[Rfam]
The record is a 126-nucleotide RNA from Sorex araneus, which matches "U4atac minor spliceosomal RNA" in Rfam. Rfam's curators put it in the seed alignment. By type it is a spliceosomal small nuclear RNA. Taxonomically the source falls in Sorex (Eukaryota, Gnathostomata, Tetrapoda, Soricinae).
RNA sequence: ACCAUCCUUUUCUUGGGGUUGCGCUACUGUCCAAUGAACGUCUAGUGAGGACAGUACUGCUAACACCUAAACAACACGCUCGCAUCAGUUAGAGCUCUGCUUUAUCUUGGUGCAAUUUUUGGAAAA
Numbered sequence: 001a002c003c004a005u006c007c008u009u010u011u012c013u014u015g016g017g018g019u020u021g022c023g024c025u026a027c028u029g030u031c032c033a034a035u036g037a038a039c040g041u042c043u044a045g046u047g048a049g050g051a052c053a054g055u056a057c058u059g060c061u062a063a064c065a066c067c068u069a070a071a072c073a074a075c076a077c078g079c080u081c082g083c084a085u086c087a088g089u090u091a092g093a094g095c096u097c098u099g100c101u102u103u104a105u106c107u108u109g110g111u112g113c114a115a116u117u118u119u120u121g122g123a124a125a126a
Stems, first nucleotide, its partner, number of pairs: 006018004021060003026055007038046002082113006090104006
Pairs were carried over by alignment from the consensus structure, which is taken from published work.